[Rfam]
RNA sequence: AAAAAAAGACCAUCGGUCUACCCAGUAAUUUCAAUCGCUCGGUGGAAGAUCUUCCCUUCAUCGU
Numbered sequence: 001a002a003a004a005a006a007a008g009a010c011c012a013u014c015g016g017u018c019u020a021c022c023c024a025g026u027a028a029u030u031u032c033a034a035u036c037g038c039u040c041g042g043u044g045g046a047a048g049a050u051c052u053u054c055c056c057u058u059c060a061u062c063g064u
Base pairs, nucleotide, nucleotide: 001061008054009053012050013049014048017046018045019044020043021042022041024039025038026037

The record is a 64-nucleotide RNA sequence from Bombyx mori, which matches "mir-2774 microRNA precursor family" in Rfam. The family's consensus secondary structure was predicted with RNAalifold.